Shown here is a 132-nucleotide RNA from Galemys pyrenaicus, a member of the family "Small nucleolar RNA SNORA31". The match comes from Rfam's covariance-model search (45 bits). From the family's description: ACA31 (SNORA31) belongs to the H/ACA class of snoRNAs which are thought to guide the sites of modification of uridines to pseudouridines. NCBI's taxonomy places the organism under Eukaryota, Sarcopterygii, Dipnotetrapodomorpha, Talpidae, Galemys. The family's consensus secondary structure was predicted with RNAalifold. On this family, see Huttenhofer et al., EMBO J 2001: "RNomics: an experimental approach that identifies 201 candidates for novel, small, non-messenger RNAs in mouse".
[Rfam]
RNA sequence: AUGCAUCUAUUUGACAGACCUGGAGCAGUUACUGUGCUACCAUGGUUCCCACUUGAGAUGCAAGAAAAAAUUGCCCUCACACUUUCUGUCUGUCUCAUUUUGGCAGCCAAGAUUCAAUGAGGGAGUACAAGC
Numbered sequence: 001a002u003g004c005a006u007c008u009a010u011u012u013g014a015c016a017g018a019c020c021u022g023g024a025g026c027a028g029u030u031a032c033u034g035u036g037c038u039a040c041c042a043u044g045g046u047u048c049c050c051a052c053u054u055g056a057g058a059u060g061c062a063a064g065a066a067a068a069a070a071u072u073g074c075c076c077u078c079a080c081a082c083u084u085u086c087u088g089u090c091u092g093u094c095u096c097a098u099u100u101u102g103g104c105a106g107c108c109a110a111g112a113u114u115c116a117a118u119g120a121g122g123g124a125g126u127a128c129a130a131g132c
Stems, first nucleotide, its partner, number of pairs: 002062007012051002017047004024038004029034001074123005085112003090106005